[Rfam]
RNA sequence: UGAAUUGCCUAGGGGUGGUCGCAAGGCCUGAGACUUCUGUUUGAAGAACCCUAUGAACCUGAUCUGGUUAAUACCAGCGUAGGGACAGGCAGAUACGCUCCUA
Numbered sequence: 001u002g003a004a005u006u007g008c009c010u011a012g013g014g015g016u017g018g019u020c021g022c023a024a025g026g027c028c029u030g031a032g033a034c035u036u037c038u039g040u041u042u043g044a045a046g047a048a049c050c051c052u053a054u055g056a057a058c059c060u061g062a063u064c065u066g067g068u069u070a071a072u073a074c075c076a077g078c079g080u081a082g083g084g085a086c087a088g089g090c091a092g093a094u095a096c097g098c099u100c101c102u103a
Stems, first nucleotide, its partner, number of pairs: 006091005011052004016046001017028004035045003058083004064077004